Purine riboswitch aptamer: a 102-nucleotide RNA from Paenactinomyces guangxiensis.
Rfam describes the family as follows. Riboswitches are metabolite binding domains within certain messenger RNAs that serve as precision sensors for their corresponding targets.
Pairs were carried over by alignment from the consensus structure, which is taken from published work.
Taxonomically the source falls in Paenactinomyces (Bacteria, Bacillota, Caryophanales, Thermoactinomycetaceae).
[Rfam]
RNA sequence: GAAACUGAAAUGGAUCUUUCUCAUAUAUGCUUAGAAAUACGGUCUAAGCGUUUCUACCAGGAAACCGUAAAUUUCCCGUCUAUGAGAAAAAUCCCAUUUAGG
Numbered sequence: 001g002a003a004a005c006u007g008a009a010a011u012g013g014a015u016c017u018u019u020c021u022c023a024u025a026u027a028u029g030c031u032u033a034g035a036a037a038u039a040c041g042g043u044c045u046a047a048g049c050g051u052u053u054c055u056a057c058c059a060g061g062a063a064a065c066c067g068u069a070a071a072u073u074u075c076c077c078g079u080c081u082a083u084g085a086g087a088a089a090a091a092u093c094c095c096a097u098u099u100a101g102g
Stems, first nucleotide, its partner, number of pairs: 018088008029049007058078001060076005